A member of the RNA family "MicA sRNA" from Arsenophonus endosymbiont of Aphis craccivora, 71 nucleotides long. Pairs were carried over by alignment from the consensus structure, which was predicted with WAR. The source organism's lineage runs through Bacteria, Pseudomonadota, Gammaproteobacteria, Morganellaceae and Arsenophonus.
RNA sequence: CCAAGAAGCGAAAAUUGUUAUCAUCCUAUUCUCUAAGAGAUUUUAUGUUGGCCACUUCAAAGUGGCCAUUU
Numbered sequence: 001c002c003a004a005g006a007a008g009c010g011a012a013a014a015u016u017g018u019u020a021u022c023a024u025c026c027u028a029u030u031c032u033c034u035a036a037g038a039g040a041u042u043u044u045a046u047g048u049u050g051g052c053c054a055c056u057u058c059a060a061a062g063u064g065g066c067c068a069u070u071u
Stems, first nucleotide, its partner, number of pairs: 023041003027035002050067007
Dot-bracket structure: ......................(((.((.....))...)))........(((((((....)))))))....